This 178-nucleotide sequence from Lysinibacillus sp. BF-4 belongs to the Rfam family "Lysine riboswitch aptamer".
[Rfam]
RNA sequence: AUUUGAGAUAGAGGCGCAAGUUUCAUGAGUAUACAAUGCGAGAGUGAGCAAACUCCGUGACCAUUGUAAAAAGGGACACUUGCCGAAGCCAUAGCCAGUUGUUCCUGGUAGUGGGCUGGUUUUGCAUUGAAUAAAUGUAAAACUGUCGAAAUGUUUAUUUCGUUGAGCUAUCUGCCAU
Numbered sequence: 001a002u003u004u005g006a007g008a009u010a011g012a013g014g015c016g017c018a019a020g021u022u023u024c025a026u027g028a029g030u031a032u033a034c035a036a037u038g039c040g041a042g043a044g045u046g047a048g049c050a051a052a053c054u055c056c057g058u059g060a061c062c063a064u065u066g067u068a069a070a071a072a073g074g075g076a077c078a079c080u081u082g083c084c085g086a087a088g089c090c091a092u093a094g095c096c097a098g099u100u101g102u103u104c105c106u107g108g109u110a111g112u113g114g115g116c117u118g119g120u121u122u123u124g125c126a127u128u129g130a131a132u133a134a135a136u137g138u139a140a141a142a143c144u145g146u147c148g149a150a151a152u153g154u155u156u157a158u159u160u161c162g163u164u165g166a167g168c169u170a171u172c173u174g175c176c177a178u
Stems, first nucleotide, its partner, number of pairs: 006173006016083006023076002032068007087117004091112002094109005118144011147162006

NCBI's taxonomy places the organism under Bacteria, Bacillota, Caryophanales, Bacillaceae, Lysinibacillus.